[Rfam]
RNA sequence: CGCUAUACUAGCCCUGAACUUAUCGGCUCACUGCUACGAGCCGGUUUUCAUUAAAC
Numbered sequence: 001c002g003c004u005a006u007a008c009u010a011g012c013c014c015u016g017a018a019c020u021u022a023u024c025g026g027c028u029c030a031c032u033g034c035u036a037c038g039a040g041c042c043g044g045u046u047u048u049c050a051u052u053a054a055a056c
Stems, first nucleotide, its partner, number of pairs: 002012004015050004022045008